[Rfam]
RNA sequence: GGCUGGUCUGAAGGUGGUGAGUUAUCUCAGCUGAUUGUUCAGUUACAGAUUAGACUCUUUGUUCCACUCUUUCCCCUCUUCUCACUACUGCACUUGACUAGUCUUUU
Numbered sequence: 001g002g003c004u005g006g007u008c009u010g011a012a013g014g015u016g017g018u019g020a021g022u023u024a025u026c027u028c029a030g031c032u033g034a035u036u037g038u039u040c041a042g043u044u045a046c047a048g049a050u051u052a053g054a055c056u057c058u059u060u061g062u063u064c065c066a067c068u069c070u071u072u073c074c075c076c077u078c079u080u081c082u083c084a085c086u087a088c089u090g091c092a093c094u095u096g097a098c099u100a101g102u103c104u105u106u107u
Stems, first nucleotide, its partner, number of pairs: 001103008010095002014091002016086006033069002037065001